[Rfam]
RNA sequence: GUUGGCUAUGGAGAUAUGAGGCCCGUGACUGUAGGGGGCAAAAUUGUCGGCUCGUUGUGUGCCAUAGCUGGGGUUUUGACCAUCGCUUUGCCGGUGCCCGUAAUCGUGUCCAAC
Numbered sequence: 001g002u003u004g005g006c007u008a009u010g011g012a013g014a015u016a017u018g019a020g021g022c023c024c025g026u027g028a029c030u031g032u033a034g035g036g037g038g039c040a041a042a043a044u045u046g047u048c049g050g051c052u053c054g055u056u057g058u059g060u061g062c063c064a065u066a067g068c069u070g071g072g073g074u075u076u077u078g079a080c081c082a083u084c085g086c087u088u089u090g091c092c093g094g095u096g097c098c099c100g101u102a103a104u105c106g107u108g109u110c111c112a113a114c
Stems, first nucleotide, its partner, number of pairs: 001114002004111002007108005014101002018097001021095002037077002040074001049063003
The record is a 114-nucleotide RNA sequence from Megalops atlanticus, which matches "Potassium channel RNA editing signal" in Rfam. Rfam links the family to the GO term adenosine to inosine editing. It is annotated as a cis-regulatory element.